A member of the RNA family "Small nucleolar RNA SNORD116" from Echinops telfairi, 92 nucleotides long. NCBI's taxonomy places the organism under Eukaryota, Euteleostomi, Amniota, Tenrecinae, Echinops. It is one of the family's seed sequences.
[Rfam]
Nucleotides: 092
Base pairs, nucleotide, nucleotide: 001092004089005088026055027054028053029052030051032047033046034045
Number, partner (000 for none) and nucleotide at each position: 001092a002000g003000a004089u005088u006000g007000a008000u009000c010000a011000u012000u013000a014000u015000u016000u017000c018000u019000a020000c021000a022000u023000a024000g025000a026055c027054a028053u029052u030051c031000c032047u033046u034045g035000g036000a037000a038000a039000u040000c041000u042000g043000a044000a045034c046033a047032a048000a049000a050000u051030g052029a053028g054027u055026g056000a057000a058000a059000a060000a061000u062000c063000g064000c065000u066000a067000g068000c069000a070000u071000u072000u073000u074000g075000c076000u077000u078000a079000g080000a081000a082000c083000u084000u085000u086000g087000u088005a089004a090000c091000a092001u